Rfam assigns this 52-nucleotide RNA from Odobenus rosmarus to the family "mir-1302 microRNA precursor family". The organism belongs to Odobenus rosmarus, within Eukaryota.
[Rfam]
RNA sequence: UUUUUAGUAUAAGUAUAUUCCAUGCAAUAUUCAGUAUAUACUUAUACUAAGA
Numbered sequence: 001u002u003u004u005u006a007g008u009a010u011a012a013g014u015a016u017a018u019u020c021c022a023u024g025c026a027a028u029a030u031u032c033a034g035u036a037u038a039u040a041c042u043u044a045u046a047c048u049a050a051g052a
Base pairs, nucleotide, nucleotide: 006048007047008046009045010044011043012042014040015039016038018036020034022031